[Rfam]
Rfam assigns this 85-nucleotide RNA from Trichonephila clavipes to the family "mir-7 microRNA precursor family". On this family, see Ambros, Cell 2001: "microRNAs: tiny regulators with great potential". A search with the family's covariance model found it, with a score of 56 bits. Its family is annotated with miRNA-mediated post-transcriptional gene silencing and RISC complex in the Gene Ontology. About the family: This family represents the microRNA (miRNA) precursor mir-7.
Nucleotides: 085
Stems, first nucleotide, its partner, number of pairs: 003083001005081004010076005016070002019068004025063007034055005
Number, partner (000 for none) and nucleotide at each position: 001000u002000c003083a004000a005081c006080u007079u008078u009000c010076c011075u012074g013073u014072c015000u016070g017069g018000a019068a020067g021066a022065c023000u024000u025063a026062a027061g028060a029059u030058u031057u032000u033000g034055u035054u036053g037052u038051u039000c040000u041000g042000u043000a044000a045000u046000u047000g048000a049000g050000a051038a052037a053036c054035a055034a056000g057031a058030g059029a060028u061027c062026u063025u064000u065022g066021u067020c068019u069017u070016c071000u072014g073013a074012c075011a076010g077000u078008a079007g080006a081005g082000g083003u084000a085000a